[Rfam]
RNA sequence: UAGACAGAUUAUUGUAUUCACGGCGUGAAAUAGGGGAUUACACUGUUUUAAAACGGAAAGUGAAUCAAUUAACAUAAUAGACUCCU
Numbered sequence: 001u002a003g004a005c006a007g008a009u010u011a012u013u014g015u016a017u018u019c020a021c022g023g024c025g026u027g028a029a030a031u032a033g034g035g036g037a038u039u040a041c042a043c044u045g046u047u048u049u050a051a052a053a054c055g056g057a058a059a060g061u062g063a064a065u066c067a068a069u070u071a072a073c074a075u076a077a078u079a080g081a082c083u084c085c086u
Base pairs, nucleotide, nucleotide: 005080006075009072010071011069013067014066016065017064018063019062020061021060024055025054026053027049028048029047030046031045032044033043
The record is an 86-nucleotide sequence from Nicotiana sylvestris, which matches "MIR6152 microRNA precursor family" in Rfam. NCBI's taxonomy places the organism under Eukaryota, Streptophytina, Gunneridae, Nicotianoideae, Nicotiana. Its family is annotated with RISC complex and miRNA-mediated post-transcriptional gene silencing in the Gene Ontology. The base pairs follow the family's consensus structure, which was predicted with RNAalifold. The match comes from Rfam's covariance-model search (67 bits).